Rfam assigns this 110-nucleotide RNA from Streptococcus himalayensis to the family "Streptococcus RNA 266".
Rfam 15.1 lists 223 matches to the family in 34 species.
The match comes from Rfam's covariance-model search (88 bits).
It is annotated as a small RNA.
The pairing is the family consensus, mapped onto this sequence.
RNA sequence: AAUGAUAGUUUUGUCGCUUUUCAUUGUAAAUCAUAUGGAACUUUUUUUCUACACUCAAACGGCUCUAUAACCUCUGCGGUGGAGUUACCCACUACAGAAAUUAUAGAGCC
Numbered sequence: 001a002a003u004g005a006u007a008g009u010u011u012u013g014u015c016g017c018u019u020u021u022c023a024u025u026g027u028a029a030a031u032c033a034u035a036u037g038g039a040a041c042u043u044u045u046u047u048u049c050u051a052c053a054c055u056c057a058a059a060c061g062g063c064u065c066u067a068u069a070a071c072c073u074c075u076g077c078g079g080u081g082g083a084g085u086u087a088c089c090c091a092c093u094a095c096a097g098a099a100a101u102u103a104u105a106g107a108g109c110c
Base pairs, nucleotide, nucleotide: 001025002024003023004022005021008017009016028043029042031040061110062109063108064107065106067104068103069102070101073098074097078093079092080091081090082089